[Rfam]
RNA sequence: UUCGUGCGGCAUCACAGCUAUAAAGUUUUCCCAAUGUUGCUCAUGUCUGUUCUUUGCAUUUCGGUGCAUUGUCCAAGCAGACGUUCGAGUGUCAAGCUGUGUUCAGAGAAAUUUGGACGUCUUAGCACCCUUCAUCUCGUCCUUGCUUCUUUUCAAGGGGGAGAUGGGUCGGUGGUCCAUACAUCC
Numbered sequence: 001u002u003c004g005u006g007c008g009g010c011a012u013c014a015c016a017g018c019u020a021u022a023a024a025g026u027u028u029u030c031c032c033a034a035u036g037u038u039g040c041u042c043a044u045g046u047c048u049g050u051u052c053u054u055u056g057c058a059u060u061u062c063g064g065u066g067c068a069u070u071g072u073c074c075a076a077g078c079a080g081a082c083g084u085u086c087g088a089g090u091g092u093c094a095a096g097c098u099g100u101g102u103u104c105a106g107a108g109a110a111a112u113u114u115g116g117a118c119g120u121c122u123u124a125g126c127a128c129c130c131u132u133c134a135u136c137u138c139g140u141c142c143u144u145g146c147u148u149c150u151u152u153u154c155a156a157g158g159g160g161g162a163g164a165u166g167g168g169u170c171g172g173u174g175g176u177c178c179a180u181a182c183a184u185c186c
Stems, first nucleotide, its partner, number of pairs: 022103002025100002039090004047080004114179005132167007140159001142157002
small nucleolar RNA snR35: a 186-nucleotide RNA from Coprinopsis marcescibilis. Rfam 15.1 lists 75 matches to the family in 66 species. The organism belongs to Coprinopsis, within Eukaryota. Its family is annotated with RNA processing and nucleolus in the Gene Ontology. Pairs were carried over by alignment from the consensus structure, which was predicted with RNAalifold. Its Rfam clan is "SNORA13 clan". The literature on the family includes a 2005 paper in J Biol Chem by Li et al., "Identification and functional analysis of 20 Box H/ACA small nucleolar RNAs (snoRNAs) from Schizosaccharomyces pombe".